[Rfam]
RNA sequence: UUGCAUAGUGAACACCAAAGUGUGCUUUAUAGUUCCCCUGGCUUUGACUCUGUCCUAGAGCAAUGUCUGUUCUUUUUCUCUGCACUGAAAGGACUAUCCUUUUAAAUGCAUUCAGAAAGUCAGCACAUUA
Numbered sequence: 001u002u003g004c005a006u007a008g009u010g011a012a013c014a015c016c017a018a019a020g021u022g023u024g025c026u027u028u029a030u031a032g033u034u035c036c037c038c039u040g041g042c043u044u045u046g047a048c049u050c051u052g053u054c055c056u057a058g059a060g061c062a063a064u065g066u067c068u069g070u071u072c073u074u075u076u077u078c079u080c081u082g083c084a085c086u087g088a089a090a091g092g093a094c095u096a097u098c099c100u101u102u103u104a105a106a107u108g109c110a111u112u113c114a115g116a117a118a119g120u121c122a123g124c125a126c127a128u129u130a
Stems, first nucleotide, its partner, number of pairs: 003055001005053004010049001013046002016041001018039001020037001022035001024033003057073006079116004083108002086105001087103007
RNA: Small nucleolar RNA SNORA22
Organism: Myotis myotis